[Rfam]
RNA sequence: GUACAGAUAUGGAGACAUGGUUCCUAAGACCAUUGUAGGGAAGAUCGUUGGUUCUGUCUGUUCUCUGAGCGGUGUGUUGGUCAUCGCCCUGCCCGUGCCCGUCAUCGUGUCCAAC
Numbered sequence: 001g002u003a004c005a006g007a008u009a010u011g012g013a014g015a016c017a018u019g020g021u022u023c024c025u026a027a028g029a030c031c032a033u034u035g036u037a038g039g040g041a042a043g044a045u046c047g048u049u050g051g052u053u054c055u056g057u058c059u060g061u062u063c064u065c066u067g068a069g070c071g072g073u074g075u076g077u078u079g080g081u082c083a084u085c086g087c088c089c090u091g092c093c094c095g096u097g098c099c100c101g102u103c104a105u106c107g108u109g110u111c112c113a114a115c
Stems, first nucleotide, its partner, number of pairs: 001115002006111001008109005014103003019098001022095001038078002041075001050064002
About this RNA: This 115-nucleotide sequence from Oncorhynchus kisutch belongs to the Rfam family "Potassium channel RNA editing signal". On this family, see Bhalla et al., Nat Struct Mol Biol 2004: "Control of human potassium channel inactivation by editing of a small mRNA hairpin". Rfam links the family to the GO term adenosine to inosine editing. The base pairs follow the family's consensus structure, which is taken from published work. This family represents a group of sequences related to the human potassium channel Kv1.1 hairpin element which directs the efficient modification of an adenosine to inosine by an adenosine deaminase acting on RNA (ADAR). The ADAR modification causes an isoleucine/valine recoding event which lies in the ion-conducting pore of the potassium channel. It is thought that this editing event targets the process of fast inactivation and allows a more rapid recovery from inactivation at negative potentials. The organism belongs to Oncorhynchus, within Eukaryota.